This 247-nucleotide RNA from Sorex araneus belongs to the Rfam family "Small nucleolar RNA SNORA53". Rfam's curators write: The snoRNA ACA53 belongs to the H/ACA family of pseudouridylation guide snoRNAs. Gene Ontology terms of the family: RNA processing and nucleolus. It is one of the family's seed sequences. The organism belongs to Sorex, within Eukaryota. Rfam classes the family as an H/ACA-box small nucleolar RNA.
RNA sequence: CUUAUGCUUCCUUAGAUCCACCUUUGUGGAUGUCAAUCUCAAACUGAGUUCUACUGGUAAACUUUGGUUUCCUAUAGUUCCCGUGAAAGAAACAUCCAGCAACUUUUUUGGUUGUAUAGUCAAAGGUGCUUAAGUCAUUGGCAUGUGAGAUCAAUAUAUCUGCAAGUUAGUCUUAGGUUCUGAUAGAAAUGACAUGCAAUUAUGCUGCCGUUCUUGACUAUGAGGACGUGACUGGUGUGCAGACACU
Numbered sequence: 001c002u003u004a005u006g007c008u009u010c011c012u013u014a015g016a017u018c019c020a021c022c023u024u025u026g027u028g029g030a031u032g033u034c035a036a037u038c039u040c041a042a043a044c045u046g047a048g049u050u051c052u053a054c055u056g057g058u059a060a061a062c063u064u065u066g067g068u069u070u071c072c073u074a075u076a077g078u079u080c081c082c083g084u085g086a087a088a089g090a091a092a093c094a095u096c097c098a099g100c101a102a103c104u105u106u107u108u109u110g111g112u113u114g115u116a117u118a119g120u121c122a123a124a125g126g127u128g129c130u131u132a133a134g135u136c137a138u139u140g141g142c143a144u145g146u147g148a149g150a151u152c153a154a155u156a157u158a159u160c161u162g163c164a165a166g167u168u169a170g171u172c173u174u175a176g177g178u179u180c181u182g183a184u185a186g187a188a189a190u191g192a193c194a195u196g197c198a199a200u201u202a203u204g205c206u207g208c209c210g211u212u213c214u215u216g217a218c219u220a221u222g223a224g225g226a227c228g229u230g231a232c233u234g235g236u237g238u239g240c241a242g243a244c245a246c247u
Base pairs, nucleotide, nucleotide: 003145004144005143006142007141008140011134012133013132014131015130019128020127021126022125023124024123025122026121027098028097029096030095031094032093037090038089039088043084044083046081048080051077052076053075057071059070060069061068062067099115100114101113102112103111104110160242161241162240163239164238167235169233170232171231172230179225180224181223183221184220185219186218190217192215196208197207198206